[Rfam]
RNA sequence: GUGUAAUGAUGAAAUCCAUGCGUGUCAACUGACUCUGGAAAUGUCCUGGUGCUCUGUGGCACCGGUUGGCGUUCUGCCGGCUGGAGCACGGCAGGGCACCAGGCUUCCGGGGCCAUGAUCAGAGACCAACUUGCUGAAUAC
Dot-bracket structure: ((((........................................((((((((...........................................))))))))..................................))))
Small nucleolar RNA SNORD10: a 141-nucleotide RNA from Merluccius polli. It scores 79 bits against the family's covariance model. The base pairs follow the family's consensus structure, which was predicted with WAR. It is annotated as a C/D-box small nucleolar RNA.